[Rfam]
RNA sequence: UUGUGCUGAGGUAGUAAGUUGUGUUGUUGUGGGGACAUUGUAUUAUUUGCCCCGACUGGAGAUAACUAUACAUCUUACUGCCUUCCACAC
Numbered sequence: 001u002u003g004u005g006c007u008g009a010g011g012u013a014g015u016a017a018g019u020u021g022u023g024u025u026g027u028u029g030u031g032g033g034g035a036c037a038u039u040g041u042a043u044u045a046u047u048u049g050c051c052c053c054g055a056c057u058g059g060a061g062a063u064a065a066c067u068a069u070a071c072a073u074c075u076u077a078c079u080g081c082c083u084u085c086c087a088c089a090c
Base pairs, nucleotide, nucleotide: 002089003088004087005086008084009083010082011081012080013079014078015077016076017075018074020072021071022070023069024068026066027065032052033051034050
Dot-bracket structure: .((((..(((((((((((.(((((.((....(((...............)))............)).))))).))))))))))).)))).

Record summary
Rfam assigns this 90-nucleotide sequence from Astyanax mexicanus to the family "let-7 microRNA precursor family". On this family, see Rougvie, Nat Rev Genet 2001: "Control of developmental timing in animals". About the family: This family represents the microRNAs (miRNA) let-7 and mir-98. let-7 was identified from a study of developmental timing in C. elegans, and was later shown to be part of a much larger class of non-coding RNAs termed miRNAs. The family has 64 seed sequences and 8,694 matches in Rfam 15.1.